[Rfam]
RNA sequence: AUUAAAGCAACACCGCAUGAGUCUGCUGAAGCAAGACUUUGCUGAUACACUCCUCCUAGACAAAGGGGUAGAGAGAGCAGCCCUUACUGGAGAAAACCACAGGGCUUUCUGUACUACCCUACAUUU
Numbered sequence: 001a002u003u004a005a006a007g008c009a010a011c012a013c014c015g016c017a018u019g020a021g022u023c024u025g026c027u028g029a030a031g032c033a034a035g036a037c038u039u040u041g042c043u044g045a046u047a048c049a050c051u052c053c054u055c056c057u058a059g060a061c062a063a064a065g066g067g068g069u070a071g072a073g074a075g076a077g078c079a080g081c082c083c084u085u086a087c088u089g090g091a092g093a094a095a096a097c098c099a100c101a102g103g104g105c106u107u108u109c110u111g112u113a114c115u116a117c118c119c120u121a122c123a124u125u126u
Stems, first nucleotide, its partner, number of pairs: 001051001009043001011041001019039006066119004076110002079106006088099003
The family of this 126-nucleotide RNA sequence from Microtus ochrogaster is "Small Cajal body specific RNA 4". The source organism's lineage runs through Eukaryota, Opisthokonta, Myomorpha, Muroidea and Microtus. The family is grouped with related families in Rfam's "SCARNA4 clan". scaRNAs are a specific class of small nuclear RNAs which localise to the Cajal bodies and guide the modification of RNA polymerase II transcribed spliceosomal RNAs U1, U2, U4, U5 and U12. ACA26 belongs to the H/ACA box class of guide RNAs as it has the predicted hairpin-hinge-hairpin-tail structure, conserved H/ACA-box motifs and is found associated with GAR1. Gene Ontology terms of the family: Cajal body, RNA processing and nucleolus. Rfam 15.1 lists 634 matches to the family in 510 species. The match comes from Rfam's covariance-model search (88 bits). The literature on the family includes a 2002 paper in EMBO J by Darzacq et al., "Cajal body-specific small nuclear RNAs: a novel class of 2'-O-methylation and pseudouridylation guide RNAs".